Shown here is a 114-nucleotide sequence from Arthrobacter oryzae, a member of the family "ALIL pseudoknot". The base pairs follow the family's consensus structure, which is taken from published work. It scores 94 bits against the family's covariance model. Its family is annotated with positive regulation of translational frameshifting in the Gene Ontology. It is annotated as a cis-regulatory element. The source organism's lineage runs through Bacteria, Bacillati, Actinomycetes, Micrococcales and Arthrobacter.
RNA sequence: GGUUUUCUUCGUGGCGGAGCUCGACCGCCCGUCGAGGUGAUGUGCGCUUUCGUGGACAAGCACCGCGAUGAACACGGGGUCGAGCCGAUCUGCAAGGCGCUGCAGAUCGCCCCG
Numbered sequence: 001g002g003u004u005u006u007c008u009u010c011g012u013g014g015c016g017g018a019g020c021u022c023g024a025c026c027g028c029c030c031g032u033c034g035a036g037g038u039g040a041u042g043u044g045c046g047c048u049u050u051c052g053u054g055g056a057c058a059a060g061c062a063c064c065g066c067g068a069u070g071a072a073c074a075c076g077g078g079g080u081c082g083a084g085c086c087g088a089u090c091u092g093c094a095a096g097g098c099g100c101u102g103c104a105g106a107u108c109g110c111c112c113c114g
Base pairs, nucleotide, nucleotide: 013029014028015027016026017025075114076113077112078111079110086109087108089106090105091104092103093102094101